[Rfam]
RNA sequence: UUAAACCUAGACGACAUAAGCCCUACCUCUCUUAUGUCCUUACGGCUCCGAAGCCGAUCCAGUGUGAAUAAGUUCCUUAUAUUAAAA
Numbered sequence: 001u002u003a004a005a006c007c008u009a010g011a012c013g014a015c016a017u018a019a020g021c022c023c024u025a026c027c028u029c030u031c032u033u034a035u036g037u038c039c040u041u042a043c044g045g046c047u048c049c050g051a052a053g054c055c056g057a058u059c060c061a062g063u064g065u066g067a068a069u070a071a072g073u074u075c076c077u078u079a080u081a082u083u084a085a086a087a
Stems, first nucleotide, its partner, number of pairs: 035066002039062002043056005
Shown here is an 87-nucleotide RNA from Aquibacillus salsiterrae, a member of the family "BsrC". The base pairs follow the family's consensus structure, which was predicted with CMfinder. The match comes from Rfam's covariance-model search (64 bits). From the family's description: The 301 nucleotide sequence from Kouji Nakamura has been trimmed to a highly conserved ~85 nucleotide long core to form this family. NCBI's taxonomy places the organism under Bacteria, Bacillati, Bacilli, Bacillaceae, Aquibacillus.